[Rfam]
RNA: Alphaproteobacterial sRNA ar7
RNA sequence: CAUCGGAAGUUUUAUUCCGAAGUUCGGUUCAAGGCCCGUCCCCCGCCUCACCGAACAGGCGGCAGCCUAAUCCCCCCUCUCCGGGCUGCCGCAAGCUUAAAGUGCGGCCACCGUGGUAUCCCCCUCCACCACGGUGGCCUUUU
Numbered sequence: 001c002a003u004c005g006g007a008a009g010u011u012u013u014a015u016u017c018c019g020a021a022g023u024u025c026g027g028u029u030c031a032a033g034g035c036c037c038g039u040c041c042c043c044c045g046c047c048u049c050a051c052c053g054a055a056c057a058g059g060c061g062g063c064a065g066c067c068u069a070a071u072c073c074c075c076c077c078u079c080u081c082c083g084g085g086c087u088g089c090c091g092c093a094a095g096c097u098u099a100a101a102g103u104g105c106g107g108c109c110a111c112c113g114u115g116g117u118a119u120c121c122c123c124c125u126c127c128a129c130c131a132c133g134g135u136g137g138c139c140u141u142u143u
Stems, first nucleotide, its partner, number of pairs: 023055006033047003059092009108137010